[Rfam]
Notes: A member of the RNA family "Plastid-psbA-4 3UTR RNA", 66 nucleotides long. The sequence is in the family's curated seed alignment. The base pairs follow the family's consensus structure, which was predicted with LocARNA. The literature on the family includes a 2023 paper in Plant Commun by Richter et al., "Retrograde signaling in plants: A critical review focusing on the GUN pathway and beyond". Plastid psbA-4 is a non-coding RNA (ncRNA) present in plastids. It was identified in inverted repeat sequences in the 3 prime untranslate region (3UTR) of photosystem II quinone-binding protein (psbA). The family's RNA type in Rfam is cis-regulatory element.

RNA sequence: GAAAGUAAGGGAGCAAUAACCAAUUUCUUCUUCUAUCAAGAGAAGAGGGCGUUAUUGCUCCUUUCC
Numbered sequence: 001g002a003a004a005g006u007a008a009g010g011g012a013g014c015a016a017u018a019a020c021c022a023a024u025u026u027c028u029u030c031u032u033c034u035a036u037c038a039a040g041a042g043a044a045g046a047g048g049g050c051g052u053u054a055u056u057g058c059u060c061c062u063u064u065c066c
Base pairs, nucleotide, nucleotide: 007064008063009062010061011060012059013058014057015056016055017054018053025042026041027040028039029038